RNA sequence: UCCCAAUGAAAAAACACUCACACAUCUUAUUUCCUGUCUAGUCCCAGAGCCUGUAAAGGUAAAACCACUGAGGCUGGCUGGGGGAGAAGAGGAAAAUUCAUUCCAGAAGGAACUGUCUGAGGGAU
Numbered sequence: 001u002c003c004c005a006a007u008g009a010a011a012a013a014a015c016a017c018u019c020a021c022a023c024a025u026c027u028u029a030u031u032u033c034c035u036g037u038c039u040a041g042u043c044c045c046a047g048a049g050c051c052u053g054u055a056a057a058g059g060u061a062a063a064a065c066c067a068c069u070g071a072g073g074c075u076g077g078c079u080g081g082g083g084g085a086g087a088a089g090a091g092g093a094a095a096a097u098u099c100a101u102u103c104c105a106g107a108a109g110g111a112a113c114u115g116u117c118u119g120a121g122g123g124a125u
Base pairs, nucleotide, nucleotide: 001124002123003122004121

Small nucleolar RNA SNORD22: a 125-nucleotide sequence from Carlito syrichta. On this family, see Tycowski et al., Science 1994: "Requirement for intron-encoded U22 small nucleolar RNA in 18S ribosomal RNA maturation". A search with the family's covariance model found it, with a score of 138 bits.